[Rfam]
RNA sequence: GAUAGGCCCCUGUCGUUACCGUGAUUGGACUCUGACAGAGAGUCAACUAGCCUUGUCGACGUGGUUCUUCGCACAUGGAACCCGAGGCGGUCCGAGCCACCAGGGGGGAGGCUCGGACCGCCUUCU
Numbered sequence: 001g002a003u004a005g006g007c008c009c010c011u012g013u014c015g016u017u018a019c020c021g022u023g024a025u026u027g028g029a030c031u032c033u034g035a036c037a038g039a040g041a042g043u044c045a046a047c048u049a050g051c052c053u054u055g056u057c058g059a060c061g062u063g064g065u066u067c068u069u070c071g072c073a074c075a076u077g078g079a080a081c082c083c084g085a086g087g088c089g090g091u092c093c094g095a096g097c098c099a100c101c102a103g104g105g106g107g108g109a110g111g112c113u114c115g116g117a118c119c120g121c122c123u124u125c126u
Stems, first nucleotide, its partner, number of pairs: 001014005015051004021032001023030001033045004061072004077082001086122013100107001